[Rfam]
RNA sequence: AAGAGCCUGUGGCCAAUAAUAACCGAGAAGAUUGACUCUAGAACAAA
Numbered sequence: 001a002a003g004a005g006c007c008u009g010u011g012g013c014c015a016a017u018a019a020u021a022a023c024c025g026a027g028a029a030g031a032u033u034g035a036c037u038c039u040a041g042a043a044c045a046a047a
Stems, first nucleotide, its partner, number of pairs: 007041002011037002014034004
The record is a 47-nucleotide RNA sequence from Rhodamnia argentea, which matches "Plastid-rpl16 group II-D1 intron" in Rfam. Its family is annotated with Group II intron splicing in the Gene Ontology. Plastid-rpl16 is a non-coding RNA (ncRNA) recognised in plastids. It was recognised in and intronic region of a ribosome rpl16 gene. The literature on the family includes a 2023 paper in Plant Commun by Richter et al., "Retrograde signaling in plants: A critical review focusing on the GUN pathway and beyond". NCBI's taxonomy places the organism under Eukaryota, Streptophytina, Embryophyta, Tracheophyta, Rhodamnia. The family's consensus secondary structure was predicted with LocARNA.